[Rfam]
RNA sequence: UGCCGUCACCGGGGGUGCCCUUGCCGGGCUGAGAGAAACCCCAAUACCUGAUCCGGGUCGUGCCGGCGUAGGGAGCGUGACCUGCCGUGGCA
Numbered sequence: 001u002g003c004c005g006u007c008a009c010c011g012g013g014g015g016u017g018c019c020c021u022u023g024c025c026g027g028g029c030u031g032a033g034a035g036a037a038a039c040c041c042c043a044a045u046a047c048c049u050g051a052u053c054c055g056g057g058u059c060g061u062g063c064c065g066g067c068g069u070a071g072g073g074a075g076c077g078u079g080a081c082c083u084g085c086c087g088u089g090g091c092a
Base pairs, nucleotide, nucleotide: 006080007079008078009077011042012041013040014039016036017029018028019027020026047072048071049070050069053066054065055064056063
The record is a 92-nucleotide sequence from Crenobacter intestini, which matches "TPP riboswitch aptamer (THI element)" in Rfam. Pairs were carried over by alignment from the consensus structure, which is taken from published work. The match comes from Rfam's covariance-model search (60 bits).